This 77-nucleotide RNA from Alligator mississippiensis belongs to the Rfam family "Mammalian CPEB3 ribozyme". The base pairs follow the family's consensus structure, which is taken from published work. NCBI's taxonomy places the organism under Eukaryota, Metazoa, Craniata, Sauria, Alligator.
RNA sequence: GGUUGCAAGCUCGGGGUCAUAGCAGAAGCACUCACAGCACAGCCCUGUCAGAUGCCAACAAAUCUGCAAAUUCUGCU
Numbered sequence: 001g002g003u004u005g006c007a008a009g010c011u012c013g014g015g016g017u018c019a020u021a022g023c024a025g026a027a028g029c030a031c032u033c034a035c036a037g038c039a040c041a042g043c044c045c046u047g048u049c050a051g052a053u054g055c056c057a058a059c060a061a062a063u064c065u066g067c068a069a070a071u072u073c074u075g076c077u
Base pairs, nucleotide, nucleotide: 014045015044016043017042021077022076023075024074025073026072027071028040049066050065051064052063053062